[Rfam]
The record is a 65-nucleotide RNA sequence from Cavia porcellus, which matches "Small nucleolar RNA SNORD58" in Rfam. Gene Ontology terms of the family: nucleolus and RNA processing. snoRNA U58 is found in introns 1, 3 and 6 of the ribosomal protein RPL17 gene in humans.
RNA sequence: UUGCUGUGAUAACUAUCUUAGGACACCUUUGGAAUCACCAUGAAAGGAAAACUAUUCUGAGCAAC
Number, nucleotide and partner (000 for none) at each position: 001u064002u063003g062004c061005u000006g000007u000008g000009a000010u000011a000012a000013c000014u000015a000016u000017c000018u000019u000020a000021g000022g000023a000024c000025a000026c000027c000028u000029u000030u000031g000032g000033a000034a000035u000036c000037a000038c000039c000040a000041u000042g000043a000044a000045a000046g000047g000048a000049a000050a000051a000052c000053u000054a000055u000056u000057c000058u000059g000060a000061g004062c003063a002064a001065c000